[Rfam]
RNA sequence: UGCCUCGUUAUUCAUCAAAUGGACACAACUCACUAUGUGUCUGAAUUGAAAAACGUGGCUAGAAGAGUAACAGGUUAUGCUUUCCUCACUGUACAGUUAAUUGCAGUGGUGACAAUGAGGCCUGUAACAGGU
Numbered sequence: 001u002g003c004c005u006c007g008u009u010a011u012u013c014a015u016c017a018a019a020u021g022g023a024c025a026c027a028a029c030u031c032a033c034u035a036u037g038u039g040u041c042u043g044a045a046u047u048g049a050a051a052a053a054c055g056u057g058g059c060u061a062g063a064a065g066a067g068u069a070a071c072a073g074g075u076u077a078u079g080c081u082u083u084c085c086u087c088a089c090u091g092u093a094c095a096g097u098u099a100a101u102u103g104c105a106g107u108g109g110u111g112a113c114a115a116u117g118a119g120g121c122c123u124g125u126a127a128c129a130g131g132u
Stems, first nucleotide, its partner, number of pairs: 002059003006055003021042007070125005084111001086109004
The record is a 132-nucleotide RNA sequence from Hemiprocne comata, which matches "Small nucleolar RNA SNORA1" in Rfam.
Gene Ontology terms of the family: RNA processing and nucleolus.
A search with the family's covariance model found it, with a score of 107 bits.
The family's RNA type in Rfam is H/ACA-box small nucleolar RNA.
The source organism's lineage runs through Eukaryota, Gnathostomata, Euteleostomi, Tetrapoda and Hemiprocne.
The base pairs follow the family's consensus structure, which was predicted with PFOLD.
About the family: ACA1 is a member of the H/ACA class of snoRNA that guide the sites of modification of uridines to pseudouridines.